Shown here is a 109-nucleotide sequence from Rothia amarae, a member of the family "Glycine riboswitch aptamer".

[Rfam]
RNA sequence: CUAUACCAUUCGGAAGAGUCCGUCGAGCUAGCAAAGAAGCACAGCUUGCGGCGCCGAAGGAGCAAAACCUCCCCGGGAAACUCUCAGGCACCCGUACCGCUUGGUUAGG
Numbered sequence: 001c002u003a004u005a006c007c008a009u010u011c012g013g014a015a016g017a018g019u020c021c022g023u024c025g026a027g028c029u030a031g032c033a034a035a036g037a038a039g040c041a042c043a044g045c046u047u048g049c050g051g052c053g054c055c056g057a058a059g060g061a062g063c064a065a066a067a068c069c070u071c072c073c074c075g076g077g078a079a080a081c082u083c084u085c086a087g088g089c090a091c092c093c094g095u096a097c098c099g100c101u102u103g104g105u106u107a108g109g
Stems, first nucleotide, its partner, number of pairs: 006104003011099003020051004053089003056085002060083003

It scores 56 bits against the family's covariance model.